[Rfam]
RNA sequence: GUGAGAUGAUGUUAAAAUUCAAUUGUCUGUCAAUCCACUGACUCAUUGAUUGAUGUUAAACAUGAAUCCCGACAGGUUCUGAUCAC
Numbered sequence: 001g002u003g004a005g006a007u008g009a010u011g012u013u014a015a016a017a018u019u020c021a022a023u024u025g026u027c028u029g030u031c032a033a034u035c036c037a038c039u040g041a042c043u044c045a046u047u048g049a050u051u052g053a054u055g056u057u058a059a060a061c062a063u064g065a066a067u068c069c070c071g072a073c074a075g076g077u078u079c080u081g082a083u084c085a086c
Stems, first nucleotide, its partner, number of pairs: 001086004
The family of this 86-nucleotide RNA from Cuscuta europaea is "Small nucleolar RNA snoR14".
A search with the family's covariance model found it, with a score of 80 bits.
The family's RNA type in Rfam is C/D-box small nucleolar RNA.
The base pairs follow the family's consensus structure.